[Rfam]
RNA sequence: UGCCAUUGCUAAGUCAAGGCAACUCCCACGACCUCGUCGUAUAUACACCAUGGGGGUUCCCUGUUACAGCUUUGGUAGAUUGACGCUGGCCCGCGCCGACCUUCUUUCUGAAGUUAGGCUGACUGGCUUUCGUUUUGAAAACCGGUCGCAAGGGCCGAGCUGUGCUCCGUUUUUGAGUUGAGACCUGCUUCACAUAUCUGUGAUUCGUAGCUGGUCUCUUAGUAACGUUACACACAUUC
Numbered sequence: 001u002g003c004c005a006u007u008g009c010u011a012a013g014u015c016a017a018g019g020c021a022a023c024u025c026c027c028a029c030g031a032c033c034u035c036g037u038c039g040u041a042u043a044u045a046c047a048c049c050a051u052g053g054g055g056g057u058u059c060c061c062u063g064u065u066a067c068a069g070c071u072u073u074g075g076u077a078g079a080u081u082g083a084c085g086c087u088g089g090c091c092c093g094c095g096c097c098g099a100c101c102u103u104c105u106u107u108c109u110g111a112a113g114u115u116a117g118g119c120u121g122a123c124u125g126g127c128u129u130u131c132g133u134u135u136u137g138a139a140a141a142c143c144g145g146u147c148g149c150a151a152g153g154g155c156c157g158a159g160c161u162g163u164g165c166u167c168c169g170u171u172u173u174u175g176a177g178u179u180g181a182g183a184c185c186u187g188c189u190u191c192a193c194a195u196a197u198c199u200g201u202g203a204u205u206c207g208u209a210g211c212u213g214g215u216c217u218c219u220u221a222g223u224a225a226c227g228u229u230a231c232a233c234a235c236a237u238u239c
Stems, first nucleotide, its partner, number of pairs: 003075003017062003021058006028040005086157001089155004095119003099115001101113004121147006128140005162233003168227003180218004187211003191202003